[Rfam]
RNA: mir-320 microRNA precursor family
Organism: Saimiri boliviensis
RNA sequence: AAUAAUAGGGGUCUUCUCUUCUCAGUUCUUCCCAGAGUUGGGAAAAGCUGGAUAGAGAGGGCCAAAAAAAGAAGAA
Numbered sequence: 001a002a003u004a005a006u007a008g009g010g011g012u013c014u015u016c017u018c019u020u021c022u023c024a025g026u027u028c029u030u031c032c033c034a035g036a037g038u039u040g041g042g043a044a045a046a047g048c049u050g051g052a053u054a055g056a057g058a059g060g061g062c063c064a065a066a067a068a069a070a071g072a073a074g075a076a
Stems, first nucleotide, its partner, number of pairs: 014059005022051004029044006
Dot-bracket structure: .............(((((...((((...((((((....))))))...))))...))))).................